[Rfam]
RNA sequence: UACUUAUCCAGAGAAGAGUAGGGAAUCGGCCCGUUGAUACUUCAGCAACCUGCAAUUGCGUUGGUGCUAAAUCCGACAUUUCUAUUUGAAAUGAAAGAUAAGAU
Numbered sequence: 001u002a003c004u005u006a007u008c009c010a011g012a013g014a015a016g017a018g019u020a021g022g023g024a025a026u027c028g029g030c031c032c033g034u035u036g037a038u039a040c041u042u043c044a045g046c047a048a049c050c051u052g053c054a055a056u057u058g059c060g061u062u063g064g065u066g067c068u069a070a071a072u073c074c075g076a077c078a079u080u081u082c083u084a085u086u087u088g089a090a091a092u093g094a095a096a097g098a099u100a101a102g103a104u
Base pairs, nucleotide, nucleotide: 003102004101005100006099007098008097013043014042015041016040021032022031023030026076027075028074029073044068045067046066047065049064050063051060052059053058072096077093078092079091080090081089082088
About this RNA
This 104-nucleotide sequence from Oceanotoga teriensis belongs to the Rfam family "SAM riboswitch aptamer (S box leader)". The SAM riboswitch is found upstream of a number of genes which code for proteins involved in methionine or cysteine biosynthesis in Gram-positive bacteria. Its family is annotated with regulation of gene expression in the Gene Ontology.